[Rfam]
Background: A member of the RNA family "Small nucleolar RNA Z13/snr52" from Phanerochaete carnosa, 110 nucleotides long. Its family is annotated with RNA processing and nucleolus in the Gene Ontology. The source organism's lineage runs through Eukaryota, Agaricomycotina, Phanerochaetaceae, Phanerochaete and Phanerochaete carnosa. A search with the family's covariance model found it, with a score of 65 bits.
RNA sequence: UCGCUGUAGAGGAUGCAAUCACUACGGAUGUAAAUCGUCUGCGGACAACACUUCCGAGAGCGCAAAAACCCCAUGUGGAUUUUUCCGUUGCCUUCCUUCUGACUCUUCCU
Numbered sequence: 001u002c003g004c005u006g007u008a009g010a011g012g013a014u015g016c017a018a019u020c021a022c023u024a025c026g027g028a029u030g031u032a033a034a035u036c037g038u039c040u041g042c043g044g045a046c047a048a049c050a051c052u053u054c055c056g057a058g059a060g061c062g063c064a065a066a067a068a069c070c071c072c073a074u075g076u077g078g079a080u081u082u083u084u085c086c087g088u089u090g091c092c093u094u095c096c097u098u099c100u101g102a103c104u105c106u107u108c109c110u
Stems, first nucleotide, its partner, number of pairs: 003109001025087004